[Rfam]
RNA sequence: CAGGGCAACGGGGAUGGGGUCCCCCAUAAAACCGCAUUCGUUGAUGACUCCUGCCAGCGC
Numbered sequence: 001c002a003g004g005g006c007a008a009c010g011g012g013g014a015u016g017g018g019g020u021c022c023c024c025c026a027u028a029a030a031a032c033c034g035c036a037u038u039c040g041u042u043g044a045u046g047a048c049u050c051c052u053g054c055c056a057g058c059g060c
Stems, first nucleotide, its partner, number of pairs: 010025004016051006034041002
Description:
The family of this 60-nucleotide sequence from Desulfovibrio sp. 6_1_46AFAA is "Fluoride riboswitch aptamer (crcB RNA motif)". Its family is annotated with positive regulation of gene expression and response to fluoride in the Gene Ontology. Pairs were carried over by alignment from the consensus structure, which is taken from published work.